[Rfam]
Shown here is a 104-nucleotide sequence from Mycobacterium cookii, a member of the family "mraW RNA".
RNA sequence: GCGUGCCCGUGCAUCGUGGCCUCUGCCCGAACCGACCCUGACGUACUUCCCCAACGCCAGGUUCGUGCUAUCGGACAGGGACCUCGAUGCAACGGCCCGCCCAU
Numbered sequence: 001g002c003g004u005g006c007c008c009g010u011g012c013a014u015c016g017u018g019g020c021c022u023c024u025g026c027c028c029g030a031a032c033c034g035a036c037c038c039u040g041a042c043g044u045a046c047u048u049c050c051c052c053a054a055c056g057c058c059a060g061g062u063u064c065g066u067g068c069u070a071u072c073g074g075a076c077a078g079g080g081a082c083c084u085c086g087a088u089g090c091a092a093c094g095g096c097c098c099g100c101c102c103a104u
Stems, first nucleotide, its partner, number of pairs: 010091007018083002021080005027074004032067001033065003037061004042056003
It scores 75 bits against the family's covariance model.